[Rfam]
RNA sequence: AAAUAGCCCCCUAUGUUUCGAUUCUUUGACAGUUUUGGACCCCCAGUCCAUUGUUGACUCGAUCAACGCUGACGUGGCACCCUAAGUGAGGUGCCACGUGUCAAUAUAUAUAUAUUUUUUUGCCUUGGGGGUCCAAAACUGCCAAAGAAUCAAAACAUAUGGGGUUGUUU
Numbered sequence: 001a002a003a004u005a006g007c008c009c010c011c012u013a014u015g016u017u018u019c020g021a022u023u024c025u026u027u028g029a030c031a032g033u034u035u036u037g038g039a040c041c042c043c044c045a046g047u048c049c050a051u052u053g054u055u056g057a058c059u060c061g062a063u064c065a066a067c068g069c070u071g072a073c074g075u076g077g078c079a080c081c082c083u084a085a086g087u088g089a090g091g092u093g094c095c096a097c098g099u100g101u102c103a104a105u106a107u108a109u110a111u112a113u114a115u116u117u118u119u120u121u122g123c124c125u126u127g128g129g130g131g132u133c134c135a136a137a138a139c140u141g142c143c144a145a146a147g148a149a150u151c152a153a154a155a156c157a158u159a160u161g162g163g164g165u166u167g168u169u170u
Stems, first nucleotide, its partner, number of pairs: 001170002004167005012159007020151009030141016072099002075096007
Dot-bracket structure: ((.(((((...(((((((.(((((((((.((((((((((((((((..........................((.(((((((........))))))).))..........................)))))))))))))))).))))))))).)))))))...))))).))
RNA: MIR2619 microRNA precursor family